This 53-nucleotide RNA sequence belongs to the Rfam family "Mu-gpT-DE RNA". The family's consensus secondary structure is taken from published work. Rfam's curators put it in the seed alignment. It is annotated as a small RNA.

RNA sequence: CCCUGACAGCCGCACGGUGCGGCUGACAUUUGCCAAGACAGGAGAUCUUCAUG
Numbered sequence: 001c002c003c004u005g006a007c008a009g010c011c012g013c014a015c016g017g018u019g020c021g022g023c024u025g026a027c028a029u030u031u032g033c034c035a036a037g038a039c040a041g042g043a044g045a046u047c048u049u050c051a052u053g
Stems, first nucleotide, its partner, number of pairs: 002042004007025005